[Rfam]
RNA sequence: AACGCAGACCGCCUUAUCGUCGUCCGCCUAGGCGGAUGGAGGAAAGUCCGGACACCAAAGAGUAGCAUAGCGGGUAACGCCCGUCCGUUGAAAGGCGAGGACAAGUGCAACAGAAAGUAUGUACAGAUAAUGCUGUAGUGAAACCAGGUAAACUCUAUGCGGUGAAAUGUCAAGUAUAUCAACAGUUUCUGAGUAAUUAGAAUAAGGGCUACUCGUCCGAUGUUGAAGGGUAGACAGCUUGAGCUAAGCAGUAAUGUUUGGUCUAGAUAAAUGAUAAGGGUCCGCCAUUGGCGCGAUACAGAAUCCGGCUUAUAGGUCUGCUUUUUUA
Numbered sequence: 001a002a003c004g005c006a007g008a009c010c011g012c013c014u015u016a017u018c019g020u021c022g023u024c025c026g027c028c029u030a031g032g033c034g035g036a037u038g039g040a041g042g043a044a045a046g047u048c049c050g051g052a053c054a055c056c057a058a059a060g061a062g063u064a065g066c067a068u069a070g071c072g073g074g075u076a077a078c079g080c081c082c083g084u085c086c087g088u089u090g091a092a093a094g095g096c097g098a099g100g101a102c103a104a105g106u107g108c109a110a111c112a113g114a115a116a117g118u119a120u121g122u123a124c125a126g127a128u129a130a131u132g133c134u135g136u137a138g139u140g141a142a143a144c145c146a147g148g149u150a151a152a153c154u155c156u157a158u159g160c161g162g163u164g165a166a167a168u169g170u171c172a173a174g175u176a177u178a179u180c181a182a183c184a185g186u187u188u189c190u191g192a193g194u195a196a197u198u199a200g201a202a203u204a205a206g207g208g209c210u211a212c213u214c215g216u217c218c219g220a221u222g223u224u225g226a227a228g229g230g231u232a233g234a235c236a237g238c239u240u241g242a243g244c245u246a247a248g249c250a251g252u253a254a255u256g257u258u259u260g261g262u263c264u265a266g267a268u269a270a271a272u273g274a275u276a277a278g279g280g281u282c283c284g285c286c287a288u289u290g291g292c293g294c295g296a297u298a299c300a301g302a303a304u305c306c307g308g309c310u311u312a313u314a315g316g317u318c319u320g321c322u323u324u325u326u327u328a
Base pairs, nucleotide, nucleotide: 001324002323004321005320006319007318008317009316010315011313012279013278014277015276016275017274018273020039021038022037023036024035025034026033027032044311045310046309048308049307050306051305052304053164054163055162056161060214061213062212063211065160066159067158068157069156070084071083072082073081074080085099086097087096088095089094100155101154105153106152107149108148123136124135125134126133168236169235170234171233179226180225181224182223183222206218207217208216209215243262244261245260246259247258248257249256250255
Dot-bracket structure: ((.(((((((((((((((.((((((((....))))))))....[[[.[[[[[((((...[[[[.((((((((((.....)))))(((((....)))).)((...((((..............((((......))))...........))..)))))))))))))...((((.......(((((......................((((.]]]]))))...)))))......))))......((((((((....))))))))..........)))))))........................]]]]]]]].).))))))).))....

Shown here is a 328-nucleotide RNA sequence from Flavobacteria bacterium BAL38, a member of the family "Bacterial RNase P class A". Rfam's curators write: Ribonuclease P (RNase P) is a ubiquitous endoribonuclease, found in archaea, bacteria and eukarya as well as chloroplasts and mitochondria. The family's RNA type in Rfam is ribozyme. It scores 201 bits against the family's covariance model.